[Rfam]
Nucleotides: 099
Base pairs, nucleotide, nucleotide: 006087007086008085009084010083011049012048013047014046016043017026018025019024033042034041055080056079057078061074062073063072064071
Number, partner (000 for none) and nucleotide at each position: 001000g002000a003000c004000a005000u006087c007086u008085u009084g010083u011049c012048g013047g014046a015000g016043u017026g018025c019024c020000u021000u022000a023000u024019g025018g026017c027000u028000g029000a030000g031000a032000c033042c034041g035000u036000u037000u038000a039000u040000u041034c042033g043016g044000g045000a046014u047013c048012c049011g050000u051000u052000g053000a054000a055080c056079c057078u058000g059000a060000u061074c062073a063072g064071g065000u066000u067000a068000a069000a070000a071064c072063c073062u074061g075000c076000g077000a078057a079056g080055g081000a082000a083010a084009c085008a086007a087006g088000c089000a090000g091000u092000u093000a094000a095000u096000u097000u098000g099000c